[Rfam]
RNA: Alphaproteobacterial sRNA ar9
Organism: Aureimonas sp. Leaf454
RNA sequence: AUAAGAUGAAUGUCGCAAAGACGUUCGAAGCGCGGUCUAGUCUCGGGAGGACGUGAUUUUCGGCGCCGGACUUAUCGGCUGCCCCGAACAAUGUAUUCGGCGUAAAAUCCAGACCUGCAGGACUCAAAUGCAAGACGAAGGUCUUGCAUUUUUUU
Numbered sequence: 001a002u003a004a005g006a007u008g009a010a011u012g013u014c015g016c017a018a019a020g021a022c023g024u025u026c027g028a029a030g031c032g033c034g035g036u037c038u039a040g041u042c043u044c045g046g047g048a049g050g051a052c053g054u055g056a057u058u059u060u061c062g063g064c065g066c067c068g069g070a071c072u073u074a075u076c077g078g079c080u081g082c083c084c085c086g087a088a089c090a091a092u093g094u095a096u097u098c099g100g101c102g103u104a105a106a107a108u109c110c111a112g113a114c115c116u117g118c119a120g121g122a123c124u125c126a127a128a129u130g131c132a133a134g135a136c137g138a139a140g141g142u143c144u145u146g147c148a149u150u151u152u153u154u155u
Stems, first nucleotide, its partner, number of pairs: 001154001003152001008026006032118003040052004055109005062083003065079005084100005129148008